[Rfam]
RNA sequence: CACUCACGGGGCGCGUUCUCCUCCCAUUAGCCCCCGCGAGUGUUCCCCUCUGGAGGUUUCGCCUUAUAGGCACUUCCACACUUCGAGCCGGAUCCUUUGAUCCGGCUCUUUUU
Numbered sequence: 001c002a003c004u005c006a007c008g009g010g011g012c013g014c015g016u017u018c019u020c021c022u023c024c025c026a027u028u029a030g031c032c033c034c035c036g037c038g039a040g041u042g043u044u045c046c047c048c049u050c051u052g053g054a055g056g057u058u059u060c061g062c063c064u065u066a067u068a069g070g071c072a073c074u075u076c077c078a079c080a081c082u083u084c085g086a087g088c089c090g091g092a093u094c095c096u097u098u099g100a101u102c103c104g105g106c107u108c109u110u111u112u113u
Stems, first nucleotide, its partner, number of pairs: 002041004007036003011033001013031002051078007085108010